[Rfam]
RNA sequence: CGCGUUGACGCGGGGUGCCCGGGCUGCCGGGCUGAGAUCACACCCGUCGAACCUGCUCUAGUUCGCACUAGCGAAGGGACGUCAUGUUCUGCGACG
Numbered sequence: 001c002g003c004g005u006u007g008a009c010g011c012g013g014g015g016u017g018c019c020c021g022g023g024c025u026g027c028c029g030g031g032c033u034g035a036g037a038u039c040a041c042a043c044c045c046g047u048c049g050a051a052c053c054u055g056c057u058c059u060a061g062u063u064c065g066c067a068c069u070a071g072c073g074a075a076g077g078g079a080c081g082u083c084a085u086g087u088u089c090u091g092c093g094a095c096g
Base pairs, nucleotide, nucleotide: 006084007083008082009081010080011046012045013044014043016040017032018031019030020029021028052077053076054075058071059070060069061068
Source information: This 96-nucleotide sequence from Nonomuraea aridisoli belongs to the Rfam family "TPP riboswitch aptamer (THI element)". Its family is annotated with thiamine pyrophosphate binding in the Gene Ontology. Pairs were carried over by alignment from the consensus structure, which is taken from published work. Lineage of the source: Bacteria > Actinomycetes > Streptosporangiales > Streptosporangiaceae > Nonomuraea.